[Rfam]
RNA: pan motif
Organism: Alteribacillus bidgolensis
RNA sequence: CAGGCAAUAUCUAAUCAGAAUUGCACUGUAUAUCUUUUUACCAAAAAAUUUCAUCUGCCUUGAUCCAUUCAGGACAGGGACGGAGAG
Numbered sequence: 001c002a003g004g005c006a007a008u009a010u011c012u013a014a015u016c017a018g019a020a021u022u023g024c025a026c027u028g029u030a031u032a033u034c035u036u037u038u039u040a041c042c043a044a045a046a047a048a049u050u051u052c053a054u055c056u057g058c059c060u061u062g063a064u065c066c067a068u069u070c071a072g073g074a075c076a077g078g079g080a081c082g083g084a085g086a087g
Stems, first nucleotide, its partner, number of pairs: 001028003004024005010019002055083003058079005064074003